[Rfam]
RNA sequence: GAAGUUUCCAUUGGUAGAGUAUGUUGAGUCAAGUUAUAUUCUUUAUACAUAAGGCACCUCGUUAAUUUAGUUUAUUGGUAUUUAUUAAAUUAUACGAAAGGGCUUAUUUUUUUAAGUAUUUUGGCGAGACUCUUGAGGGAACAGGACAAGCUGAAGACUACAGGCUGAAGCUGUCCCCUAAGAAAGCGAGCCAACAAUACGAAGUAUUGUAAAUAAAGAAGCCAGUAA
Numbered sequence: 001g002a003a004g005u006u007u008c009c010a011u012u013g014g015u016a017g018a019g020u021a022u023g024u025u026g027a028g029u030c031a032a033g034u035u036a037u038a039u040u041c042u043u044u045a046u047a048c049a050u051a052a053g054g055c056a057c058c059u060c061g062u063u064a065a066u067u068u069a070g071u072u073u074a075u076u077g078g079u080a081u082u083u084a085u086u087a088a089a090u091u092a093u094a095c096g097a098a099a100g101g102g103c104u105u106a107u108u109u110u111u112u113u114a115a116g117u118a119u120u121u122u123g124g125c126g127a128g129a130c131u132c133u134u135g136a137g138g139g140a141a142c143a144g145g146a147c148a149a150g151c152u153g154a155a156g157a158c159u160a161c162a163g164g165c166u167g168a169a170g171c172u173g174u175c176c177c178c179u180a181a182g183a184a185a186g187c188g189a190g191c192c193a194a195c196a197a198u199a200c201g202a203a204g205u206a207u208u209g210u211a212a213a214u215a216a217a218g219a220a221g222c223c224a225g226u227a228a
Base pairs, nucleotide, nucleotide: 001208002207016042017041018040019039020038021037022036023035043070044069045068047066050064051063052062054060086206087205090202091201104114106112116200117199118198119197120196121194122193123192124191125190131183132182133181134180136179137178138177139176141174142173144171149166150165151164152163